The family of this 58-nucleotide RNA is "terC RNA".
Rfam's curators put it in the seed alignment.
It is annotated as a cis-regulatory element.

Nucleotides: 058
Base pairs, nucleotide, nucleotide: 006052007051008050009049010048011047012046022041023040024039025038026037027036028035029034
Number, partner (000 for none) and nucleotide at each position: 001000c002000a003000u004000u005000u006052g007051a008050g009049c010048c011047g012046g013000a014000c015000c016000c017000c018000u019000c020000u021000g022041g023040c024039a025038g026037g027036c028035a029034a030000g031000g032000c033000g034029u035028u036027g037026c038025c039024u040023g041022c042000g043000a044000u045000g046012u047011c048010g049009g050008u051007u052006c053000g054000c055000a056000a057000u058000g